Shown here is a 72-nucleotide sequence from Granulibacter bethesdensis, a member of the family "tRNA". Rfam links the family to the GO term triplet codon-amino acid adaptor activity. Taxonomically the source falls in Granulibacter bethesdensis (Bacteria, Alphaproteobacteria, Acetobacterales, Acetobacteraceae).

RNA sequence: GGGCGCGUAGCUCAGCGGUAGAGCAUCGCCUUGACAUGGCGGGGGUCACAGGUUCAAUCCCUGUCGCGCCCA
Numbered sequence: 001g002g003g004c005g006c007g008u009a010g011c012u013c014a015g016c017g018g019u020a021g022a023g024c025a026u027c028g029c030c031u032u033g034a035c036a037u038g039g040c041g042g043g044g045g046u047c048a049c050a051g052g053u054u055c056a057a058u059c060c061c062u063g064u065c066g067c068g069c070c071c072a
Stems, first nucleotide, its partner, number of pairs: 001071007010024004026042005048064005
About the family: Transfer RNA (tRNA) molecules are approximately 80 nucleotides in length.